[Rfam]
RNA sequence: UCAAUCCUUCGGGGCGGGGUGAAAUUCCCCACCGGCGGUGAUGGCUAGAUAUAGCCUCAGUCCGUGACCCGCGUUAUGCGGUUGACCCGGUGCAACUCUGGGACCGACAGUGAGAGUCUGGAUGGGAGAAGGAUGAA
Numbered sequence: 001u002c003a004a005u006c007c008u009u010c011g012g013g014g015c016g017g018g019g020u021g022a023a024a025u026u027c028c029c030c031a032c033c034g035g036c037g038g039u040g041a042u043g044g045c046u047a048g049a050u051a052u053a054g055c056c057u058c059a060g061u062c063c064g065u066g067a068c069c070c071g072c073g074u075u076a077u078g079c080g081g082u083u084g085a086c087c088c089g090g091u092g093c094a095a096c097u098c099u100g101g102g103a104c105c106g107a108c109a110g111u112g113a114g115a116g117u118c119u120g121g122a123u124g125g126g127a128g129a130a131g132g133a134u135g136a137a
Stems, first nucleotide, its partner, number of pairs: 004134007017029003031117002033106002035065004060104002069081002086102005108120003
Shown here is a 137-nucleotide sequence from Marininema mesophilum, a member of the family "FMN riboswitch aptamer (RFN element)". It scores 107 bits against the family's covariance model. Taxonomically the source falls in Marininema (Bacteria, Bacillota, Bacilli, Thermoactinomycetaceae).